[Rfam]
RNA sequence: AAUUGGUCUGAGUAUUGUGGGUUAUUGUUAAGCUGAUUUAAUAUUGUCUCCCCCGACAACCAUGCUUGACUAGCUUAAA
Numbered sequence: 001a002a003u004u005g006g007u008c009u010g011a012g013u014a015u016u017g018u019g020g021g022u023u024a025u026u027g028u029u030a031a032g033c034u035g036a037u038u039u040a041a042u043a044u045u046g047u048c049u050c051c052c053c054c055g056a057c058a059a060c061c062a063u064g065c066u067u068g069a070c071u072a073g074c075u076u077a078a079a
Stems, first nucleotide, its partner, number of pairs: 001075001003073006010067002014063002016058003020054002026043003030039002
Y RNA: a 79-nucleotide RNA from Pan troglodytes. The base pairs follow the family's consensus structure, which is taken from published work. Rfam's curators write: Y RNAs are components of the Ro ribonucleoprotein particle (Ro RNP), in association with Ro60 and La proteins. The Y RNAs and Ro60 and La proteins are well conserved, but the function of the Ro RNP is not known. In humans the RNA component can be one of four small RNAs -- hY1, hY3, hY4 and hY5. The match comes from Rfam's covariance-model search (53 bits).